RNA sequence: GCCGGGUGCGGUGGCGCGCGCCUGUAAUCCAAGCUACGGGGAGGCUGAGGCUGGCGGAUCGCUUGAGCUCAGGAGCUCUGAGCUGCGGUGGGCUAUGGCGAUCGGGUGUCCACACUAAGCUCGGUAUCGAUAUGGUGCUCCUGGGGGAGCCCGGGACCACCAGGUCGCCUAAGGAGGGGUGAACCGGCCCAGGUCGGAAACGGAGCAGGCCAAAGCCCCCGUGCUGGGCAGUAGUGGGGUCGCGCCUGUGAAUAGCCUCUGUAGUUCAGCCUGUGCAAUACAGUGGGACCCAGUCUUUU
Numbered sequence: 001g002c003c004g005g006g007u008g009c010g011g012u013g014g015c016g017c018g019c020g021c022c023u024g025u026a027a028u029c030c031a032a033g034c035u036a037c038g039g040g041g042a043g044g045c046u047g048a049g050g051c052u053g054g055c056g057g058a059u060c061g062c063u064u065g066a067g068c069u070c071a072g073g074a075g076c077u078c079u080g081a082g083c084u085g086c087g088g089u090g091g092g093c094u095a096u097g098g099c100g101a102u103c104g105g106g107u108g109u110c111c112a113c114a115c116u117a118a119g120c121u122c123g124g125u126a127u128c129g130a131u132a133u134g135g136u137g138c139u140c141c142u143g144g145g146g147g148a149g150c151c152c153g154g155g156a157c158c159a160c161c162a163g164g165u166c167g168c169c170u171a172a173g174g175a176g177g178g179g180u181g182a183a184c185c186g187g188c189c190c191a192g193g194u195c196g197g198a199a200a201c202g203g204a205g206c207a208g209g210c211c212a213a214a215g216c217c218c219c220c221g222u223g224c225u226g227g228g229c230a231g232u233a234g235u236g237g238g239g240u241c242g243c244g245c246c247u248g249u250g251a252a253u254a255g256c257c258u259c260u261g262u263a264g265u266u267c268a269g270c271c272u273g274u275g276c277a278a279u280a281c282a283g284u285g286g287g288a289c290c291c292a293g294u295c296u297u298u299u
Stems, first nucleotide, its partner, number of pairs: 001045003004023007028042003047297008059286005067276002070273004078269011090257001092256005103248007110238002113236005119229009128167004133162005139156007168174002176219005186211004194203003
Shown here is a 299-nucleotide sequence from Lepisosteus oculatus, a member of the family "Metazoan signal recognition particle RNA".
A search with the family's covariance model found it, with a score of 276 bits.
From the family's description: The signal recognition particle (SRP) is a universally conserved ribonucleoprotein.